[Rfam]
RNA: Bacterial large subunit ribosomal RNA, nucleotides 631 to 861
RNA sequence: GAGUUACGUUUAACGUGCAAGGUUAAGGCGAGGAGCCGGAGCCGCAGCGAAAGCGAGUCUGAAUAGGGCGACUUAGUACGUGGGCGUAGACCCGAAACCGUGUGAUCUACCCCUGUCCAGGGUGAAGGUGCGGUAACACGCACUGGAGGCCCGAACCCACGAACGUUGAAAAGUUCGGGGAUGAGGUGGGGGUAGCGGAGAAAUUCCAAUCGAACUCGGAGAUAGCUGGUU
Numbered sequence: 001g002a003g004u005u006a007c008g009u010u011u012a013a014c015g016u017g018c019a020a021g022g023u024u025a026a027g028g029c030g031a032g033g034a035g036c037c038g039g040a041g042c043c044g045c046a047g048c049g050a051a052a053g054c055g056a057g058u059c060u061g062a063a064u065a066g067g068g069c070g071a072c073u074u075a076g077u078a079c080g081u082g083g084g085c086g087u088a089g090a091c092c093c094g095a096a097a098c099c100g101u102g103u104g105a106u107c108u109a110c111c112c113c114u115g116u117c118c119a120g121g122g123u124g125a126a127g128g129u130g131c132g133g134u135a136a137c138a139c140g141c142a143c144u145g146g147a148g149g150c151c152c153g154a155a156c157c158c159a160c161g162a163a164c165g166u167u168g169a170a171a172a173g174u175u176c177g178g179g180g181a182u183g184a185g186g187u188g189g190g191g192g193u194a195g196c197g198g199a200g201a202a203a204u205u206c207c208a209a210u211c212g213a214a215c216u217c218g219g220a221g222a223u224a225g226c227u228g229g230u231u
Base pairs, nucleotide, nucleotide: 005088006087007086008085009084010083011082013081014080015079016078017077018076021043022042023041024040027037028036029035047054048053057069058068059067060066091229092228094226098219099218100217102215103214107195108194109193110192111191112190113189114188115187116186117185118183120152121151122150123149127144128143129142130141131140132139156180157179158178160177161176162175163174164173197207198206199205